[Rfam]
RNA sequence: GUUAUUAAGUGGAAGCCAUCCGCUUCUCACCUUGCGGCUUUAGCUAGUAAGGUUAAUAUGGGCAUGGUUUGAUUGUGCUUUUUAGCGGGUGGCAUGUAUGUGCCAUCCGUUUUUAUUUUAGUUC
Numbered sequence: 001g002u003u004a005u006u007a008a009g010u011g012g013a014a015g016c017c018a019u020c021c022g023c024u025u026c027u028c029a030c031c032u033u034g035c036g037g038c039u040u041u042a043g044c045u046a047g048u049a050a051g052g053u054u055a056a057u058a059u060g061g062g063c064a065u066g067g068u069u070u071g072a073u074u075g076u077g078c079u080u081u082u083u084a085g086c087g088g089g090u091g092g093c094a095u096g097u098a099u100g101u102g103c104c105a106u107c108c109g110u111u112u113u114u115a116u117u118u119u120a121g122u123u124c
Base pairs, nucleotide, nucleotide: 011027012026013025014024015023016022029053030052031051034048035047037044038043084111085110086109087108088107089106090105091104092103093102094101095100

The family of this 124-nucleotide RNA sequence from Propionispora sp. 2/2-37 is "Ribosomal protein L20 leader". This family is a putative r-protein leader autoregulatory structure found in B. subtilis and other low-GC Gram-positive bacteria.